[Rfam]
RNA sequence: AGGCACUCUGGAAAGCGCCUUGGAUGCAAAUCCGGGCCACCGAAGGGGUAAGCGUUGCCUUUCGCAAGGGCGGCGUCAAGGCUCUCAGGUUUCCCGACAGAGGGGGCAUG
Numbered sequence: 001a002g003g004c005a006c007u008c009u010g011g012a013a014a015g016c017g018c019c020u021u022g023g024a025u026g027c028a029a030a031u032c033c034g035g036g037c038c039a040c041c042g043a044a045g046g047g048g049u050a051a052g053c054g055u056u057g058c059c060u061u062u063c064g065c066a067a068g069g070g071c072g073g074c075g076u077c078a079a080g081g082c083u084c085u086c087a088g089g090u091u092u093c094c095c096g097a098c099a100g101a102g103g104g105g106g107c108a109u110g
Stems, first nucleotide, its partner, number of pairs: 004104001006102005017037004039090003042086002046084003052077001
Dot-bracket structure: ...(.(((((......((((.............)))).(((((..(((...(........................)....))))).))).......))))).)......
A member of the RNA family "Glycine riboswitch aptamer" from Aurantiacibacter gangjinensis, 110 nucleotides long.
Lineage of the source: Bacteria > Pseudomonadati > Sphingomonadales > Erythrobacteraceae > Aurantiacibacter.
The match comes from Rfam's covariance-model search (42 bits).